This 67-nucleotide RNA sequence from Halobacillus sp. BBL2006 belongs to the Rfam family "Bacillaceae-1 RNA". Taxonomically the source falls in Halobacillus (Bacteria, Bacillota, Bacilli, Caryophanales). Rfam classes the family as a small RNA.
[Rfam]
RNA sequence: AUAGAUGAGUGUUCAACUAAGUUCGGCACGUCCUGUGCCAACGUUGAACUGACCUUCUUCCUAAGGG
Numbered sequence: 001a002u003a004g005a006u007g008a009g010u011g012u013u014c015a016a017c018u019a020a021g022u023u024c025g026g027c028a029c030g031u032c033c034u035g036u037g038c039c040a041a042c043g044u045u046g047a048a049c050u051g052a053c054c055u056u057c058u059u060c061c062u063a064a065g066g067g
Stems, first nucleotide, its partner, number of pairs: 011049007025039005053067004